[Rfam]
RNA sequence: GCCGAGCUUAGUAACAUGAGUUUGUAACCUAAGUGGGGGCAUUAAUGUGAUUGGACAUAAGGCUUGUCCAACUGGCUGGGCUAAGUGUGGCUAAUUGCUGGCCUGCCCGUUCCAAGCAAGGAGUUGGGCCAUGUAGUCUAAGCGAAAGCAUGGGCUUCGUGGCCCCUAGAGAGGGGGGCAUUGCGUCAGGCUGGUUUCACAGAGCAGCGACAACCUUCCUCUCCUUGCAGUGGAAGGAUAACGGGUUGGUGCUUCCUUAGCUCAACAAAACUAGAUGGGCUAACCUUAAUUGGACAAUCACAUUU
Numbered sequence: 001g002c003c004g005a006g007c008u009u010a011g012u013a014a015c016a017u018g019a020g021u022u023u024g025u026a027a028c029c030u031a032a033g034u035g036g037g038g039g040c041a042u043u044a045a046u047g048u049g050a051u052u053g054g055a056c057a058u059a060a061g062g063c064u065u066g067u068c069c070a071a072c073u074g075g076c077u078g079g080g081c082u083a084a085g086u087g088u089g090g091c092u093a094a095u096u097g098c099u100g101g102c103c104u105g106c107c108c109g110u111u112c113c114a115a116g117c118a119a120g121g122a123g124u125u126g127g128g129c130c131a132u133g134u135a136g137u138c139u140a141a142g143c144g145a146a147a148g149c150a151u152g153g154g155c156u157u158c159g160u161g162g163c164c165c166c167u168a169g170a171g172a173g174g175g176g177g178g179c180a181u182u183g184c185g186u187c188a189g190g191c192u193g194g195u196u197u198c199a200c201a202g203a204g205c206a207g208c209g210a211c212a213a214c215c216u217u218c219c220u221c222u223c224c225u226u227g228c229a230g231u232g233g234a235a236g237g238a239u240a241a242c243g244g245g246u247u248g249g250u251g252c253u254u255c256c257u258u259a260g261c262u263c264a265a266c267a268a269a270a271c272u273a274g275a276u277g278g279g280c281u282a283a284c285c286u287u288a289a290u291u292g293g294a295c296a297a298u299c300a301c302a303u304u305u
Stems, first nucleotide, its partner, number of pairs: 001040003004023007028037003044304010056292002058289001060287001061285002064282001066280001068278003072274004077269001078263008087255001089253002092251002098249008107237002110235005116228008126165008135156006142149002166171001173218005184209003191202003
Shown here is a 305-nucleotide RNA sequence from Handroanthus impetiginosus, a member of the family "Plant signal recognition particle RNA". Pairs were carried over by alignment from the consensus structure, which is taken from published work. A search with the family's covariance model found it, with a score of 259 bits. It is annotated as a non-coding RNA gene.